This 184-nucleotide sequence from Stutzerimonas stutzeri belongs to the Rfam family "RgsA sRNA". On this family, see Livny et al., Nucleic Acids Res 2006: "Identification of 17 Pseudomonas aeruginosa sRNAs and prediction of sRNA-encoding genes in 10 diverse pathogens using the bioinformatic tool sRNAPredict2". Pairs were carried over by alignment from the consensus structure, which was predicted with RNAalifold. About the family: This small RNA (sRNA) was computationally identified in the genome of the opportunistic pathogen Pseudomonas aeruginosa and its expression verified by northern blot analysis.

RNA sequence: CAAGGCUCGCGUAACUAUUCCAAAUCCGUUUUAAAAAGCGCGUGAAUCGCCCGGCAGAGUUGUCGAUCCGGGCCAAUACUUCAGGCACUGGCCGCGCAAUCCCCCCAAUGCUCGGCCAGCUGAGGGAGCGAGGAACGUGACCUCAAACUCCUAAUGGUCUUGGCCCGGCUCAUUGCGACGCCGG
Number, nucleotide and partner (000 for none) at each position: 001c000002a000003a000004g000005g000006c000007u000008c000009g000010c000011g000012u000013a000014a000015c000016u000017a000018u000019u000020c000021c000022a000023a000024a000025u000026c000027c000028g000029u000030u000031u000032u000033a000034a000035a000036a000037a000038g000039c000040g159041c000042g000043u156044g155045a000046a000047u000048c000049g000050c000051c000052c000053g000054g000055c000056a000057g000058a000059g000060u000061u000062g000063u000064c000065g000066a000067u000068c000069c000070g000071g000072g000073c000074c000075a000076a000077u000078a000079c000080u000081u000082c000083a000084g000085g000086c000087a000088c119089u118090g117091g000092c115093c114094g000095c000096g000097c110098a109099a000100u000101c000102c000103c000104c000105c000106c000107a000108a000109u098110g097111c000112u000113c000114g093115g092116c000117c090118a089119g088120c000121u145122g144123a143124g142125g141126g000127a000128g138129c137130g000131a000132g000133g000134a000135a000136c000137g129138u128139g000140a000141c125142c124143u123144c122145a121146a000147a000148c000149u000150c000151c000152u000153a000154a000155u044156g043157g000158u000159c040160u000161u000162g000163g000164c000165c184166c183167g182168g181169c000170u178171c177172a000173u000174u000175g000176c000177g171178a170179c000180g000181c168182c167183g166184g165